[Rfam]
RNA sequence: CCAAAGGCUCUUUUCAGAGCCACCCACGUUUUCUGCAAAAGAGCC
Numbered sequence: 001c002c003a004a005a006g007g008c009u010c011u012u013u014u015c016a017g018a019g020c021c022a023c024c025c026a027c028g029u030u031u032u033c034u035g036c037a038a039a040a041g042a043g044c045c
Stems, first nucleotide, its partner, number of pairs: 006021006